About this RNA
A member of the RNA family "Fungal signal recognition particle RNA" from Aspergillus novoparasiticus, 275 nucleotides long. By type it is a non-coding RNA gene. Lineage of the source: Eukaryota > Fungi > Ascomycota > leotiomyceta > Aspergillus subgen. Circumdati.
[Rfam]
RNA sequence: AAUCUGUCAUGGAUAACCUAGUGGGAGGUCAGCCGCUAAGACGAUAACCUUGCUUCGGUUCUCCACACCACCGGGACCGGUGCCUGGUACGAAUCCUGGGGUCGUCGUUGUACUCGUGCGAGUAAUCCACGAUCGCUACAACGCGCUAAGCAAUGGAGAUGAUUCUUGAGGGAAGCAAUUCUGCAGAGACAUCUCCACCCCGGGGUGGCGUCGCCAGAAUACACCGACCCGUUACAGGGAAAUUGGCUACUUGGCUGGACAACUACGUCUCUCUU
Numbered sequence: 001a002a003u004c005u006g007u008c009a010u011g012g013a014u015a016a017c018c019u020a021g022u023g024g025g026a027g028g029u030c031a032g033c034c035g036c037u038a039a040g041a042c043g044a045u046a047a048c049c050u051u052g053c054u055u056c057g058g059u060u061c062u063c064c065a066c067a068c069c070a071c072c073g074g075g076a077c078c079g080g081u082g083c084c085u086g087g088u089a090c091g092a093a094u095c096c097u098g099g100g101g102u103c104g105u106c107g108u109u110g111u112a113c114u115c116g117u118g119c120g121a122g123u124a125a126u127c128c129a130c131g132a133u134c135g136c137u138a139c140a141a142c143g144c145g146c147u148a149a150g151c152a153a154u155g156g157a158g159a160u161g162a163u164u165c166u167u168g169a170g171g172g173a174a175g176c177a178a179u180u181c182u183g184c185a186g187a188g189a190c191a192u193c194u195c196c197a198c199c200c201c202g203g204g205g206u207g208g209c210g211u212c213g214c215c216a217g218a219a220u221a222c223a224c225c226g227a228c229c230c231g232u233u234a235c236a237g238g239g240a241a242a243u244u245g246g247c248u249a250c251u252u253g254g255c256u257g258g259a260c261a262a263c264u265a266c267g268u269c270u271c272u273c274u275u
Base pairs, nucleotide, nucleotide: 002014003013004012021266022265023264024263027260029258030257031256032255033254034253035251037249042245043244044243045242050241051240053238054237055236062067072231073230074229075228077226079225080224081223082222084217085216086215087214088213089211090210091209093206094205095204096203097202098201099200100199101198103145106143107142108141109140110139111138112137114132115131116130117129118128120127121126146150154197155196156195157194158193159192160191164189165188166187167186172181173180174179
The family is grouped with related families in Rfam's "SRP clan".